[Rfam]
RNA sequence: AUUGGAAUUGCUAAUGAGCGCUGGAAAAUCUCUGCCGCUCGCAAUUGCUGCCAUUGCUUCAUGCUUUUGACCACGGAUGUACUGGCACUGGUAGACAAGCGAUAAUGAGGAAGGUCGGUGCGGUUUCGCCCCGGCCUUUUUUGUU
Number, nucleotide and partner (000 for none) at each position: 001a000002u000003u050004g049005g048006a000007a045008u044009u043010g000011c000012u000013a000014a000015u000016g040017a039018g038019c037020g036021c000022u000023g000024g000025a000026a000027a000028a000029u000030c000031u000032c000033u000034g000035c000036c020037g019038c018039u017040c016041g000042c000043a009044a008045u007046u000047g000048c005049u004050g003051c000052c000053a103054u102055u101056g100057c099058u098059u097060c000061a000062u093063g092064c091065u090066u000067u000068u087069g086070a000071c085072c084073a083074c000075g000076g000077a000078u000079g000080u000081a000082c000083u073084g072085g071086c069087a068088c000089u000090g065091g064092u063093a062094g000095a000096c000097a059098a058099g057100c056101g055102a054103u053104a000105a144106u143107g142108a141109g140110g139111a138112a137113g136114g135115u134116c133117g132118g131119u000120g129121c128122g127123g000124u000125u000126u000127c122128g121129c120130c000131c118132c117133g116134g115135c114136c113137u112138u111139u110140u109141u108142u107143g106144u105145u000
This 145-nucleotide RNA sequence from Shinella sp. WSJ-2 belongs to the Rfam family "Alphaproteobacterial sRNA ar35". The organism belongs to Shinella, within Bacteria. The family has 13 seed sequences and 266 matches in Rfam 15.1. On this family, see del Val et al., RNA Biol 2012: "A survey of sRNA families in alpha-proteobacteria".